[Rfam]
RNA sequence: AGCAAAGUGAUGAGCUAACAUUUCUGAACCUUAUGUGGAAGCACAUAAUGCGAUGGUCUUCAAAGUUCUCUGAUUGCU
Numbered sequence: 001a002g003c004a005a006a007g008u009g010a011u012g013a014g015c016u017a018a019c020a021u022u023u024c025u026g027a028a029c030c031u032u033a034u035g036u037g038g039a040a041g042c043a044c045a046u047a048a049u050g051c052g053a054u055g056g057u058c059u060u061c062a063a064a065g066u067u068c069u070c071u072g073a074u075u076g077c078u
Base pairs, nucleotide, nucleotide: 001078002077003076004075005074
The family of this 78-nucleotide RNA from Tetracentron sinense is "Small nucleolar RNA R160". Its family is annotated with nucleolus and RNA processing in the Gene Ontology. Rfam describes the family as follows. snoR160 is a C/D box small nucleolar RNA, which acts as a methylation guide for 25S ribosomal RNA in plants. snoR160 has been alternatively named snoZ270 in rice. A reference for the family is Chen et al. (2003), "The high diversity of snoRNAs in plants: identification and comparative study of 120 snoRNA genes from Oryza sativa", Nucleic Acids Res.